[Rfam]
The family of this 221-nucleotide sequence from Mangrovibacillus cuniculi is "T-box leader". The base pairs follow the family's consensus structure, which is taken from published work. Rfam classes the family as a cis-regulatory leader. A search with the family's covariance model found it, with a score of 95 bits.

RNA sequence: CUCAAUGUAAUGAUGAGGACAUGAUAGCGAUGUACGGUUUCUAGAGAGGGAAGCAUUUGGUGAAAGCUUCCUAACACGACAUAUGCUGUUACCACCUUUGAACACUAGCCCGAAAUGUAUAGUAGGCGCUAGCGGCUGCAGACCGUUAUCUGAACUGGAGUCAAACAGCUUAGUCUGUUUGAAAACUAGGGUGGAAUCACGAUUUCAAACUCGUCCCUUUU
Numbered sequence: 001c002u003c004a005a006u007g008u009a010a011u012g013a014u015g016a017g018g019a020c021a022u023g024a025u026a027g028c029g030a031u032g033u034a035c036g037g038u039u040u041c042u043a044g045a046g047a048g049g050g051a052a053g054c055a056u057u058u059g060g061u062g063a064a065a066g067c068u069u070c071c072u073a074a075c076a077c078g079a080c081a082u083a084u085g086c087u088g089u090u091a092c093c094a095c096c097u098u099u100g101a102a103c104a105c106u107a108g109c110c111c112g113a114a115a116u117g118u119a120u121a122g123u124a125g126g127c128g129c130u131a132g133c134g135g136c137u138g139c140a141g142a143c144c145g146u147u148a149u150c151u152g153a154a155c156u157g158g159a160g161u162c163a164a165a166c167a168g169c170u171u172a173g174u175c176u177g178u179u180u181g182a183a184a185a186c187u188a189g190g191g192u193g194g195a196a197u198c199a200c201g202a203u204u205u206c207a208a209a210c211u212c213g214u215c216c217c218u219u220u221u
Stems, first nucleotide, its partner, number of pairs: 007103002015098004026087004037075003049071006106131004110126002133145003161182007188218004199214004